[Rfam]
Nucleotides: 096
Base pairs, nucleotide, nucleotide: 001096002095003094004093005092006091007090008089009088010087011086012085013084016081017080018079019078020077021076024073026071
Number, partner (000 for none) and nucleotide at each position: 001096g002095u003094u004093a005092a006091g007090g008089g009088g010087a011086u012085u013084g014000u015000u016081g017080u018079c019078u020077g021076g022000u023000u024073c025000a026071a027000g028000g029000u030000c031000a032000c033000c034000a035000c036000g037000u038000g039000c040000a041000u042000g043000c044000a045000g046000u047000a048000g049000a050000u051000g052000g053000g054000c055000g056000u057000g058000u059000c060000u061000a062000u063000u064000g065000g066000u067000g068000a069000u070000c071026u072000c073024g074000g075000a076021c077020c078019a079018g080017g081016c082000u083000u084013c085012a086011a087010u088009c089008c090007c091006u092005u093004u094003a095002a096001c
mir-166 microRNA precursor family: a 96-nucleotide RNA sequence from Paspalum vaginatum. The source organism's lineage runs through Eukaryota, Viridiplantae, Streptophytina, Spermatophyta and Paspalum. Gene Ontology terms of the family: RISC complex and miRNA-mediated post-transcriptional gene silencing. Rfam describes the family as follows. This family represents the plant microRNA (miRNA) precursor mir-166. The base pairs follow the family's consensus structure, which was predicted with PFOLD. Rfam 15.1 lists 2,599 matches to the family in 229 species.